Shown here is an 85-nucleotide sequence from Anopheles sinensis, a member of the family "mir-999 microRNA precursor family". For this family Rfam cites "Identification of microRNAs expressed in two mosquito vectors, Aedes albopictus and Culex quinquefasciatus" (Skalsky et al., BMC Genomics, 2010). Rfam links the family to the GO terms miRNA-mediated post-transcriptional gene silencing and RISC complex. The family has 5 seed sequences and 56 matches in Rfam 15.1.
[Rfam]
RNA sequence: GGCGUUAGCGAGGACGCGGUCAUGCAGUCUAAUAUUUGGCAUUAGAUUCAAAUGUUAACUGUAAGACUGUGUCUUUGAAAGCGUU
Numbered sequence: 001g002g003c004g005u006u007a008g009c010g011a012g013g014a015c016g017c018g019g020u021c022a023u024g025c026a027g028u029c030u031a032a033u034a035u036u037u038g039g040c041a042u043u044a045g046a047u048u049c050a051a052a053u054g055u056u057a058a059c060u061g062u063a064a065g066a067c068u069g070u071g072u073c074u075u076u077g078a079a080a081g082c083g084u085u
Stems, first nucleotide, its partner, number of pairs: 003083004009077003013073009023063006031056007